[Rfam]
RNA sequence: GGAGUCCUGAAGUGUUCGUGGAUUACCAUAAAGUUUUGAGCCAACAUUUUUACAACGGGAGCCUGCCGGUUUCCAUUUGGCGUGCAAGCCUCCAAUGGAGUGGACGUACAAAGAAUGGAACAGGGCACCCACCUGCCGAGAGCAGGUUCAAAACUAUGGUGUUUAAACGGCACAGUUGGGGCUCCA
Numbered sequence: 001g002g003a004g005u006c007c008u009g010a011a012g013u014g015u016u017c018g019u020g021g022a023u024u025a026c027c028a029u030a031a032a033g034u035u036u037u038g039a040g041c042c043a044a045c046a047u048u049u050u051u052a053c054a055a056c057g058g059g060a061g062c063c064u065g066c067c068g069g070u071u072u073c074c075a076u077u078u079g080g081c082g083u084g085c086a087a088g089c090c091u092c093c094a095a096u097g098g099a100g101u102g103g104a105c106g107u108a109c110a111a112a113g114a115a116u117g118g119a120a121c122a123g124g125g126c127a128c129c130c131a132c133c134u135g136c137c138g139a140g141a142g143c144a145g146g147u148u149c150a151a152a153a154c155u156a157u158g159g160u161g162u163u164u165a166a167a168c169g170g171c172a173c174a175g176u177u178g179g180g181g182c183u184c185c186a
Base pairs, nucleotide, nucleotide: 002184003183004182005181006180007179008178009177010176012173013172014171015170017169018168019167033154034153035152037150038149039148040147041146042145057130058129059128061126062125063124064123072119073118074117075116076115077114078113084107085106089103090102092100

The record is a 186-nucleotide RNA from Exobacillus caeni, which matches "6S / SsrS RNA" in Rfam. A search with the family's covariance model found it, with a score of 114 bits. The family's RNA type in Rfam is non-coding RNA gene.